Shown here is a 120-nucleotide sequence from Alkalisalibacterium limincola, a member of the family "Xanthomonadaceae sRNA sX13". The family's RNA type in Rfam is small RNA. The literature on the family includes a 2011 paper in Nucleic Acids Res by Schmidtke et al., "Genome-wide transcriptome analysis of the plant pathogen Xanthomonas identifies sRNAs with putative virulence functions".
[Rfam]
RNA sequence: AAUGUCUGUCGUGGAUCGCUCACUCCCCUGAGUGGAUCCGGGAACGCCGGCCCCUCCCCAGGUUCGGCGUUUCCUCCCCCCCGACCCCGUGGGCCCCCCCCUGGCCCACGGGGUUUUUAU
Numbered sequence: 001a002a003u004g005u006c007u008g009u010c011g012u013g014g015a016u017c018g019c020u021c022a023c024u025c026c027c028c029u030g031a032g033u034g035g036a037u038c039c040g041g042g043a044a045c046g047c048c049g050g051c052c053c054c055u056c057c058c059c060a061g062g063u064u065c066g067g068c069g070u071u072u073c074c075u076c077c078c079c080c081c082c083g084a085c086c087c088c089g090u091g092g093g094c095c096c097c098c099c100c101c102u103g104g105c106c107c108a109c110g111g112g113g114u115u116u117u118u119a120u
Stems, first nucleotide, its partner, number of pairs: 004012001006011001013039005019032004041073009050063003083115008092106004